[Rfam]
RNA sequence: UCAGAGGCUUUUUUUUUUUACUUUUAAAAGCAUUUUUUUUACAACUUCUUCGGCCGAAGAGGUUGUAAAAAAAUGCUUUUAAAAGGUAAAAAAAAAGCCUCUGACGAUCACAGCUGAGCCGCGCAAUCAUCAGAGGCUUUUUUUUG
Numbered sequence: 001u002c003a004g005a006g007g008c009u010u011u012u013u014u015u016u017u018u019u020a021c022u023u024u025u026a027a028a029a030g031c032a033u034u035u036u037u038u039u040u041a042c043a044a045c046u047u048c049u050u051c052g053g054c055c056g057a058a059g060a061g062g063u064u065g066u067a068a069a070a071a072a073a074u075g076c077u078u079u080u081a082a083a084a085g086g087u088a089a090a091a092a093a094a095a096a097g098c099c100u101c102u103g104a105c106g107a108u109c110a111c112a113g114c115u116g117a118g119c120c121g122c123g124c125a126a127u128c129a130u131c132a133g134a135g136g137c138u139u140u141u142u143u144u145u146g
Stems, first nucleotide, its partner, number of pairs: 016090003021085014036070004047060004094140010